[Rfam]
RNA: U7 small nuclear RNA
RNA sequence: AAGUGUUACAGCUCUUUUAGAAUUUGUCUAGCAGGUUUUCCAAUUUUCUCUAGAAAACUCCU
Numbered sequence: 001a002a003g004u005g006u007u008a009c010a011g012c013u014c015u016u017u018u019a020g021a022a023u024u025u026g027u028c029u030a031g032c033a034g035g036u037u038u039u040c041c042a043a044u045u046u047u048c049u050c051u052a053g054a055a056a057a058c059u060c061c062u
Stems, first nucleotide, its partner, number of pairs: 034059007042051001